RNA sequence: UCUCUGUGCAUACCGGCUCUGAGAACCAUGUCUGAUCAGAGCUGGGUACUGCCUGUUCAGAACAGACACCGGUCUCUAAGACGCAGCCAAAUGGCC
Number, nucleotide and partner (000 for none) at each position: 001u094002c093003u000004c000005u090006g000007u000008g000009c000010a000011u000012a000013c086014c000015g084016g000017c000018u000019c080020u078021g077022a000023g075024a000025a073026c072027c071028a000029u068030g067031u066032c000033u064034g063035a000036u061037c060038a000039g058040a057041g056042c055043u000044g053045g052046g000047u000048a000049c000050u000051g000052c045053c044054u000055g042056u041057u040058c039059a000060g037061a036062a000063c034064a033065g000066a031067c030068a029069c000070c000071g027072g026073u025074c000075u023076c000077u021078a020079a000080g019081a000082c000083g000084c015085a000086g013087c000088c000089a000090a005091a000092u000093g002094g001095c000096c000
The family of this 96-nucleotide RNA sequence from Canis lupus is "mir-589 microRNA precursor family". The match comes from Rfam's covariance-model search (63 bits). Its family is annotated with RISC complex and miRNA-mediated post-transcriptional gene silencing in the Gene Ontology. Pairs were carried over by alignment from the consensus structure, which was predicted with RNAalifold. The organism belongs to Canis lupus, within Eukaryota.